[Rfam]
RNA sequence: UUGCAAAUUCGGCCUAAUUCCGGAGCAUCCGGAAGCGGAGGACCCACGUAUUUGGGGUUAAUCCUUACUUUUGUAAGGAGGGAUGAGAAUCGCUCUUUCGCCAUCCUACCCGUCAGCUAACUUCGUCGGCUAAAGCGAAGGAGGUC
Numbered sequence: 001u002u003g004c005a006a007a008u009u010c011g012g013c014c015u016a017a018u019u020c021c022g023g024a025g026c027a028u029c030c031g032g033a034a035g036c037g038g039a040g041g042a043c044c045c046a047c048g049u050a051u052u053u054g055g056g057g058u059u060a061a062u063c064c065u066u067a068c069u070u071u072u073g074u075a076a077g078g079a080g081g082g083a084u085g086a087g088a089a090u091c092g093c094u095c096u097u098u099c100g101c102c103a104u105c106c107u108a109c110c111c112g113u114c115a116g117c118u119a120a121c122u123u124c125g126u127c128g129g130c131u132a133a134a135g136c137g138a139a140g141g142a143g144g145u146c
Stems, first nucleotide, its partner, number of pairs: 011131004018034007035126006045054002055111003063078004081106004

This 146-nucleotide RNA sequence from Aneurinibacillus sp. XH2 belongs to the Rfam family "c-di-AMP riboswitch aptamer (ydaO/yuaA leader)". Rfam links the family to the GO terms cyclic-di-AMP binding and regulation of gene expression. Rfam's curators write: This family represents a conserved RNA structure found upstream of the ydaO and yuaA genes in Bacillus subtilis and related genes in other bacteria. Taxonomically the source falls in Aneurinibacillus (Bacteria, Bacillati, Bacillota, Bacilli).